This 87-nucleotide sequence from Vallitalea guaymasensis belongs to the Rfam family "Group II catalytic intron D1-D4-1".
From the family's description: Group II introns are found in rRNA, tRNA and mRNA of organelles in fungi, plants and protists, and also in mRNA in bacteria.
NCBI's taxonomy places the organism under Bacteria, Bacillota, Lachnospirales, Vallitaleaceae, Vallitalea.
Pairs were carried over by alignment from the consensus structure.
The family has 237 seed sequences and 2,508 matches in Rfam 15.1.
The match comes from Rfam's covariance-model search (76 bits).

RNA sequence: CAACCCAUACAGUGAUGUAUGGCUGAACUAUCAGAAGUCAGCAGAGGUCAUAGUACUAAGUCAUGCUAUAGAAUGACUAGGAAGGAC
Dot-bracket structure: ((..(((((((....))))))).))............((....)).(((......(((..(((..........))).)))....)))